[Rfam]
RNA: MIR7502 microRNA precursor family
Organism: Gossypium davidsonii
Nucleotides: 140
Stems, first nucleotide, its partner, number of pairs: 002139003006135004011130006018123004024117001028113002031110003
Number, partner (000 for none) and nucleotide at each position: 001000u002139g003138u004137u005000a006135a007134a008133a009132g010000c011130u012129u013128c014127a015126u016125c017000c018123a019122u020121u021120u022000a023000u024117a025000c026000a027000g028113u029112u030000u031110a032109a033108a034000a035000c036000u037000c038000g039000u040000c041000c042000c043000u044000a045000u046000a047000u048000g049000u050000u051000a052000u053000a054000a055000u056000g057000a058000a059000g060000u061000a062000c063000a064000c065000a066000u067000a068000a069000c070000a071000c072000g073000c074000c075000a076000c077000a078000u079000g080000u081000a082000a083000u084000u085000a086000u087000u088000a089000u090000u091000c092000u093000g094000u095000u096000a097000a098000u099000u100000a101000c102000g103000u104000c105000g106000a107000u108033u109032u110031u111000u112029a113028a114000c115000a116000a117024u118000u119000a120021a121020a122019a123018u124000a125016g126015a127014u128013g129012a130011a131000a132009u133008u134007u135006u136000g137004a138003a139002c140000a